[Rfam]
The record is a 109-nucleotide sequence from Sinocyclocheilus rhinocerous, which matches "mir-36 microRNA precursor family" in Rfam. The family is grouped with related families in Rfam's "mir-36 clan". It scores 49 bits against the family's covariance model.
RNA sequence: GAAUCUGGUUAGAUUCAUUAAUGUCCCAUUUGACUCUCUGGUGAUAUAAUAUAUACGAUAUAUGUAUAUAUCACCAGAGAGUCAAAUGGGACAUUAAUGGAAUGAUUUU
Number, nucleotide and partner (000 for none) at each position: 001g000002a000003a000004u000005c000006u000007g000008g000009u000010u000011a000012g000013a000014u000015u000016c099017a098018u097019u096020a095021a094022u093023g000024u091025c090026c089027c088028a087029u086030u085031u084032g083033a082034c081035u080036c079037u078038c000039u077040g000041g074042u073043g072044a071045u070046a069047u068048a067049a000050u000051a000052u000053a000054u000055a000056c000057g000058a000059u000060a000061u000062a000063u000064g000065u000066a000067u048068a047069u046070a045071u044072c043073a042074c041075c000076a000077g039078a037079g036080a035081g034082u033083c032084a031085a030086a029087u028088g027089g026090g025091a024092c000093a022094u021095u020096a019097a018098u017099g016100g000101a000102a000103u000104g000105a000106u000107u000108u000109u000